[Rfam]
Nucleotides: 122
Base pairs, nucleotide, nucleotide: 003116004115013106014105015104016103019058020057021056022055023054024053025052027050028049029048033045034044035043036042064089065088066087067086068085069084070083071082072081074079090099091098
Number, partner (000 for none) and nucleotide at each position: 001000g002000a003116c004115c005000u006000a007000a008000a009000a010000u011000a012000a013106c014105u015104c016103c017000g018000a019058g020057c021056u022055u023054a024053a025052g026000a027050a028049c029048c030000u031000u032000c033045a034044c035043u036042a037000g038000a039000c040000u041000c042036u043035a044034g045033u046000a047000u048029g049028g050027u051000g052025c053024u054023u055022a056021a057020g058019c059000c060000g061000a062000u063000a064089g065088g066087g067086u068085u069084a070083g071082u072081c073000c074079g075000g076000a077000a078000a079074c080000a081072g082071a083070c084069u085068g086067g087066c088065c089064u090099c091098c092000c093000g094000g095000u096000g097000c098091g099090g100000a101000a102000a103016g104015g105014a106013g107000a108000a109000c110000a111000u112000a113000a114000u115004g116003g117000u118000u119000a120000a121000u122000u